[Rfam]
RNA sequence: AGAGGUCACAAGUUGAAGGCCGUAGCAGAAGCAUUUGUGGAGCAGCUUGUCAGAUUCCAAGGAAUCUGUGAAUUCUGCU
Numbered sequence: 001a002g003a004g005g006u007c008a009c010a011a012g013u014u015g016a017a018g019g020c021c022g023u024a025g026c027a028g029a030a031g032c033a034u035u036u037g038u039g040g041a042g043c044a045g046c047u048u049g050u051c052a053g054a055u056u057c058c059a060a061g062g063a064a065u066c067u068g069u070g071a072a073u074u075c076u077g078c079u
Stems, first nucleotide, its partner, number of pairs: 018047003024079007031043002051068007

Record summary:
Mammalian CPEB3 ribozyme: a 79-nucleotide RNA from Alligator sinensis. A reference for the family is Salehi-Ashtiani et al. (2006), "A genomewide search for ribozymes reveals an HDV-like sequence in the human CPEB3 gene", Science. The mammalian CPEB3 ribozyme is a self cleaving RNA located in the second intron of the CPEB3 gene which belongs to a family of genes regulating messenger RNA polyadenylation. This ribozyme is highly conserved and found only in mammals.